[Rfam]
RNA sequence: CAUGCUUCUUUAUAGUGCCAUAUAGCAAGAGAACUUAUGGAAUGUAAAGAAGUAUGCA
Number, nucleotide and partner (000 for none) at each position: 001c056002a055003u054004g053005c052006u051007u050008c049009u048010u047011u046012a045013u044014a043015g000016u000017g000018c040019c039020a038021u037022a036023u000024a000025g000026c000027a000028a000029g000030a000031g000032a000033a000034c000035u000036u022037a021038u020039g019040g018041a000042a000043u014044g013045u012046a011047a010048a009049g008050a007051a006052g005053u004054a003055u002056g001057c000058a000

A member of the RNA family "mir-1 microRNA precursor family" from Strongyloides ratti, 58 nucleotides long. Taxonomically the source falls in Strongyloides (Eukaryota, Protostomia, Tylenchina, Panagrolaimomorpha). On this family, see Lee and Ambros, Science 2001: "An extensive class of small RNAs in Caenorhabditis elegans". The sequence is in the family's curated seed alignment. Gene Ontology terms of the family: miRNA-mediated post-transcriptional gene silencing and RISC complex. From the family's description: This family represents the microRNA (miRNA) mir-1 family. miRNAs are transcribed as ~70nt precursors (modelled here) and subsequently processed by the Dicer enzyme to give a ~22nt product. In this case the mature sequence comes from the 3' arm of the precursor. The extents of the hairpin precursors are not generally known and are estimated based on hairpin prediction. The products are thought to have regulatory roles through complementarity to mRNA. The involvement of Dicer in miRNA processing suggests a relationship with the phenomenon of RNA interference. miRNAs are numbered based on the sequence of the mature RNA. This family also contains the mir-206 from human, which appears to be related to mir-1. The family has 137 seed sequences and 4,474 matches in Rfam 15.1.